[Rfam]
RNA sequence: UGACCACUUUCCUUAAGGGGAGUUAAGGCAACGGUUCGCCGGGUCAAAUGCCGA
Numbered sequence: 001u002g003a004c005c006a007c008u009u010u011c012c013u014u015a016a017g018g019g020g021a022g023u024u025a026a027g028g029c030a031a032c033g034g035u036u037c038g039c040c041g042g043g044u045c046a047a048a049u050g051c052c053g054a
Stems, first nucleotide, its partner, number of pairs: 001046005006023006
RNA: Streptococcus sRNA SpF59 (ldcC RNA)
Organism: Radiobacillus deserti